[Rfam]
RNA sequence: GGAGGAGAAGCGUCCCUGGUGGGGCGUCCGGACUUCAAAUCCGGGAGGGGCCGCGAGCCGGUCCUUGGUGGGUUCGACUCCCACUCUCUUCC
Numbered sequence: 001g002g003a004g005g006a007g008a009a010g011c012g013u014c015c016c017u018g019g020u021g022g023g024g025c026g027u028c029c030g031g032a033c034u035u036c037a038a039a040u041c042c043g044g045g046a047g048g049g050g051c052c053g054c055g056a057g058c059c060g061g062u063c064c065u066u067g068g069u070g071g072g073u074u075c076g077a078c079u080c081c082c083a084c085u086c087u088c089u090u091c092c
Stems, first nucleotide, its partner, number of pairs: 001092008011026006027046001028044005048064005069083004
RNA: Selenocysteine transfer RNA
Organism: Azorhizobium caulinodans